[Rfam]
Background:
This 419-nucleotide sequence from Pseudolabrys sp. Root1462 belongs to the Rfam family "Alphaproteobacteria transfer-messenger RNA". Rfam classes the family as a non-coding RNA gene. Rfam describes the family as follows. Bacterial tmRNA, also known as 10Sa RNA or SsrA, is named for its dual tRNA and mRNA-like properties. Lineage of the source: Bacteria > Pseudomonadati > Pseudomonadota > Hyphomicrobiales > Pseudolabrys.

RNA sequence: GCCCUUACUUCGUCAAGGAUUUCCGCCUAUAUUGAUGAGGCCGGGGCAACCCGGUCUAUGGCGAUAAACGGAUGUCGAAAUAAACCUUUCGGACCCGGGGGCAGUACCCGGCGCCUCCACCCGUGUCGCUCGCCAUACCAGGCACACCCGUUCGUUGUAGCGGGGCCGGUCUUUCCCGUAAGGGGGGACUUUGCGGGCGACACCGGCGGGGGCGAACUAGGAUCGACGAGGGCGUAAAGGGCAUACUUUCGCUCGGCAUGGUUCCGCCGUUAUCGGGCCUAUCUCAUAGUUGCCAACGACAACUAUGCUCCGGUUGCUCAGGCCGCCUAAGCGGUCCUGAAAAACCAAGCCUACAAGUCCUAACGGGAUAAGCUCCGUUAGGCGGGGUUCGGAGGCACCUGGCAACAGAAGCCUCCACU
Dot-bracket structure: .......................................(((((......)))).)...(((((.....(.(((((........(((.(((...(((((.......)))))(((((((.........................................................................................)))))))............)))))).......))))).)..)))))((((..[[.[[[)))).....]]]]].........................................................................................................[[[[..((((((]]]]..........))))))...
Numbered sequence: 001g002c003c004c005u006u007a008c009u010u011c012g013u014c015a016a017g018g019a020u021u022u023c024c025g026c027c028u029a030u031a032u033u034g035a036u037g038a039g040g041c042c043g044g045g046g047c048a049a050c051c052c053g054g055u056c057u058a059u060g061g062c063g064a065u066a067a068a069c070g071g072a073u074g075u076c077g078a079a080a081u082a083a084a085c086c087u088u089u090c091g092g093a094c095c096c097g098g099g100g101g102c103a104g105u106a107c108c109c110g111g112c113g114c115c116u117c118c119a120c121c122c123g124u125g126u127c128g129c130u131c132g133c134c135a136u137a138c139c140a141g142g143c144a145c146a147c148c149c150g151u152u153c154g155u156u157g158u159a160g161c162g163g164g165g166c167c168g169g170u171c172u173u174u175c176c177c178g179u180a181a182g183g184g185g186g187g188a189c190u191u192u193g194c195g196g197g198c199g200a201c202a203c204c205g206g207c208g209g210g211g212g213c214g215a216a217c218u219a220g221g222a223u224c225g226a227c228g229a230g231g232g233c234g235u236a237a238a239g240g241g242c243a244u245a246c247u248u249u250c251g252c253u254c255g256g257c258a259u260g261g262u263u264c265c266g267c268c269g270u271u272a273u274c275g276g277g278c279c280u281a282u283c284u285c286a287u288a289g290u291u292g293c294c295a296a297c298g299a300c301a302a303c304u305a306u307g308c309u310c311c312g313g314u315u316g317c318u319c320a321g322g323c324c325g326c327c328u329a330a331g332c333g334g335u336c337c338u339g340a341a342a343a344a345c346c347a348a349g350c351c352u353a354c355a356a357g358u359c360c361u362a363a364c365g366g367g368a369u370a371a372g373c374u375c376c377g378u379u380a381g382g383c384g385g386g387g388u389u390c391g392g393a394g395g396c397a398c399c400u401g402g403c404a405a406c407a408g409a410a411g412c413c414u415c416c417a418c419u
Stems, first nucleotide, its partner, number of pairs: 040056001041054004060253005070246001072244005085232003089229003095111005112214007254269004260279002263277003385400004391416006